The record is a 75-nucleotide sequence from Muribaculaceae bacterium Isolate-080, which matches "Bacteroidetes FopS (family of paralogous sRNAs)" in Rfam. The literature on the family includes a 2025 paper in Nat Commun by Ruttiger et al., "The global RNA-binding protein RbpB is a regulator of polysaccharide utilization in Bacteroides thetaiotaomicron". Pairs were carried over by alignment from the consensus structure, which is taken from published work. Gene Ontology term of the family: sRNA-mediated gene silencing. NCBI's taxonomy places the organism under Bacteria, Pseudomonadati, Bacteroidia, Bacteroidales, Muribaculaceae. About the family: The RNA-binding protein RbpB and BTncRNA_FopS sRNA are involved in the post-transcription regulation of polysaccharide utilisation loci (PUL). FopS sRNAs function as post-transcriptional repressors by binding to the vicinity of the start codon of the first mRNA of target PUL polycistrons, typically corresponding to the cognate SusC homolog, impeding translation of the respective glycan transporter.

RNA sequence: GUGUUUUCAUGGUAUUAGAUUUAAGGUUAAAAGACUACAGGGCUGUCGCGAUGACAGCCCUGUAGUCUUUUUCAG
Dot-bracket structure: ........................................(((((((.....)))))))................